[Rfam]
RNA sequence: GUUGGUUGAAAAUCACCCGCGGUUCUGACCGUGGCUGCUGGUGAGAUUCGGCGCCCAGAGCCACCUGGGGCCUCAGCUCCCCGCCCACUGCCUCAGUGUGAGCGGGUGAAACCCAGGCUCCGACAUUC
Number, nucleotide and partner (000 for none) at each position: 001g000002u000003u000004g000005g052006u051007u050008g049009a048010a047011a000012a000013u044014c043015a042016c041017c000018c000019g000020c000021g036022g035023u034024u033025c000026u000027g000028a000029c000030c000031g000032u000033g024034g023035c022036u021037g000038c000039u000040g000041g016042u015043g014044a013045g000046a000047u010048u009049c008050g007051g006052c005053g000054c000055c000056c000057a000058g000059a000060g000061c000062c000063a000064c000065c000066u000067g121068g000069g119070g118071c117072c116073u115074c000075a000076g000077c000078u109079c108080c000081c106082c105083g000084c000085c000086c100087a099088c098089u000090g000091c000092c000093u000094c000095a000096g000097u000098g088099u087100g086101a000102g000103c000104g000105g082106g081107u000108g079109a078110a000111a000112c000113c000114c000115a073116g072117g071118c070119u069120c000121c067122g000123a000124c000125a000126u000127u000128c000